[Rfam]
RNA sequence: AUGCUUGCCCCAUGUUCGUCGGCGUUGCCGGCACAUGCCCAGGCAGUCGAGACCUUCGAGGCUGCAAGCGCGGGAAGCCGCGCUGGUCGUUUCUUCCUCCGGACGUACCGCGUCCAUCCACCCACAAGGGACCUUUCCCUUGCGGGA
Numbered sequence: 001a002u003g004c005u006u007g008c009c010c011c012a013u014g015u016u017c018g019u020c021g022g023c024g025u026u027g028c029c030g031g032c033a034c035a036u037g038c039c040c041a042g043g044c045a046g047u048c049g050a051g052a053c054c055u056u057c058g059a060g061g062c063u064g065c066a067a068g069c070g071c072g073g074g075a076a077g078c079c080g081c082g083c084u085g086g087u088c089g090u091u092u093c094u095u096c097c098u099c100c101g102g103a104c105g106u107a108c109c110g111c112g113u114c115c116a117u118c119c120a121c122c123c124a125c126a127a128g129g130g131a132c133c134u135u136u137c138c139c140u141u142g143c144g145g146g147a
Base pairs, nucleotide, nucleotide: 011037012036013035014034015033018032019031020030021029022028023027043065044064045063046062047061048060051088052087053086054085067084068083069082070081071080072079073078117147118146119145125142126141127140128139129138130137131136